[Rfam]
RNA sequence: UUAACUCAAAUUUGUAUGGAGUCGGAACAUUUGCCUACGUUUACCGCAAGGGGCGCUGUUCCAAUUGUAUACAAAUAUGAGUUA
Number, nucleotide and partner (000 for none) at each position: 001u000002u000003a000004a000005c000006u000007c000008a078009a000010a076011u075012u074013u073014g072015u071016a070017u000018g068019g000020a066021g065022u064023c000024g062025g061026a060027a059028c058029a057030u000031u000032u000033g000034c052035c051036u050037a000038c000039g047040u046041u000042u000043a000044c000045c000046g040047c039048a000049a000050g036051g035052g034053g000054c000055g000056c000057u029058g028059u027060u026061c025062c024063a000064a022065u021066u020067g000068u018069a000070u016071a015072c014073a013074a012075a011076u010077a000078u008079g000080a000081g000082u000083u000084a000
mir-2807 microRNA precursor family: an 84-nucleotide RNA from Bombyx mori. Gene Ontology terms of the family: RISC complex and miRNA-mediated post-transcriptional gene silencing. The literature on the family includes a 2010 paper in Funct Integr Genomics by Cai et al., "Novel microRNAs in silkworm (Bombyx mori)". The base pairs follow the family's consensus structure, which was predicted with RNAalifold. NCBI's taxonomy places the organism under Eukaryota, Protostomia, Dicondylia, Pterygota, Bombyx. The match comes from Rfam's covariance-model search (77 bits). The family has 8 seed sequences and 5,120 matches in Rfam 15.1.